[Rfam]
RNA sequence: CGGCGGGUCACACCCCCCCAACGGGGUGCUACUAUUCUGGAAGGAAUAGCCAUA
Number, nucleotide and partner (000 for none) at each position: 001c000002g000003g000004c000005g000006g000007g000008u000009c000010a000011c028012a027013c026014c025015c024016c023017c000018c000019c000020a000021a000022c000023g016024g015025g014026g013027u012028g011029c000030u000031a000032c049033u048034a047035u000036u045037c044038u043039g000040g000041a000042a000043g038044g037045a036046a000047u034048a033049g032050c000051c000052a000053u000054a000

serC leader: a 54-nucleotide RNA sequence from Niveispirillum lacus.
This family is a putative regulatory RNA structure that is found upstream of the serC-serA operon in some alpha-proteobacteria. The final stem of the structure overlaps the ribosome binding site of the serC reading frame.
It is annotated as a cis-regulatory leader.
For this family Rfam cites "Evidence for a second class of S-adenosylmethionine riboswitches and other regulatory RNA motifs in alpha-proteobacteria" (Corbino et al., Genome Biol, 2005).
It scores 55 bits against the family's covariance model.